The record is a 46-nucleotide sequence from Lepeophtheirus salmonis, which matches "Histone 3' UTR stem-loop" in Rfam.
RNA sequence: UAAUAGGUCCUUUUAAGGACCACCAAUUUCUUGAUUAAGUGUUUAU
Number, nucleotide and partner (000 for none) at each position: 001u000002a000003a000004u000005a000006g021007g020008u019009c018010c017011u016012u000013u000014u000015a000016a011017g010018g009019a008020c007021c006022a000023c000024c000025a000026a000027u000028u000029u000030c000031u000032u000033g000034a000035u000036u000037a000038a000039g000040u000041g000042u000043u000044u000045a000046u000
Pairs were carried over by alignment from the consensus structure, which is taken from published work. NCBI's taxonomy places the organism under Eukaryota, Opisthokonta, Metazoa, Pancrustacea, Lepeophtheirus. It is annotated as a cis-regulatory element.